[Rfam]
RNA: Small nucleolar RNA U3
RNA sequence: AAGACUAUACUUUCAGGGAUCAUUUCUAUAGUUCUUGACUUGGAAAUGCGUUUCGGAAGUGUCGUGUCUCGCUACUCACGAUGAUGAUGCGUAACGCUUCUCUCUGAGCGCGAAUCGGGCAGCAGCUGCAACUCACGUUCCACGCUGCUGCCAUUGAUGACCGUUCAUCAGUCGGCAACGAGAGAUGAGGAGAGGAGUGUUUACAGAGUGAU
Numbered sequence: 001a002a003g004a005c006u007a008u009a010c011u012u013u014c015a016g017g018g019a020u021c022a023u024u025u026c027u028a029u030a031g032u033u034c035u036u037g038a039c040u041u042g043g044a045a046a047u048g049c050g051u052u053u054c055g056g057a058a059g060u061g062u063c064g065u066g067u068c069u070c071g072c073u074a075c076u077c078a079c080g081a082u083g084a085u086g087a088u089g090c091g092u093a094a095c096g097c098u099u100c101u102c103u104c105u106g107a108g109c110g111c112g113a114a115u116c117g118g119g120c121a122g123c124a125g126c127u128g129c130a131a132c133u134c135a136c137g138u139u140c141c142a143c144g145c146u147g148c149u150g151c152c153a154u155u156g157a158u159g160a161c162c163g164u165u166c167a168u169c170a171g172u173c174g175g176c177a178a179c180g181a182g183a184g185a186u187g188a189g190g191a192g193a194g195g196a197g198u199g200u201u202u203a204c205a206g207a208g209u210g211a212u
Base pairs, nucleotide, nucleotide: 001041002040003039005037009032010031011030015027016026017025018024048065049064050063054061076211077210078209079208094200095199096198097197098196099195100194101193102192103191104190105189108164109163110162118152119151120150121149123147124146125145126144127142128141130139131138167186168185169184172181173180174179